A member of the RNA family "mir-16 microRNA precursor family" from Symbiodinium sp. CCMP2456, 80 nucleotides long. Rfam links the family to the GO terms miRNA-mediated post-transcriptional gene silencing and RISC complex. Rfam 15.1 lists 4,705 matches to the family in 758 species. The literature on the family includes a 2002 paper in Proc Natl Acad Sci U S A by Calin et al., "Frequent deletions and down-regulation of micro- RNA genes miR15 and miR16 at 13q14 in chronic lymphocytic leukemia". Pairs were carried over by alignment from the consensus structure, which was predicted with PFOLD.

RNA sequence: UAUGUGCAUAUGAACUACAUAAAUAUUGAUGUGUAUAUAUAUAUACACACAUCAAUAUUUAUGUAGUUCAAAUGCACACA
Numbered sequence: 001u002a003u004g005u006g007c008a009u010a011u012g013a014a015c016u017a018c019a020u021a022a023a024u025a026u027u028g029a030u031g032u033g034u035a036u037a038u039a040u041a042u043a044u045a046c047a048c049a050c051a052u053c054a055a056u057a058u059u060u061a062u063g064u065a066g067u068u069c070a071a072a073u074g075c076a077c078a079c080a
Stems, first nucleotide, its partner, number of pairs: 001080001003078001005076003010073001011070008022059008
Dot-bracket structure: (.(.(((..(((((((((...((((((((......................))))))))...))))))))..)))).).)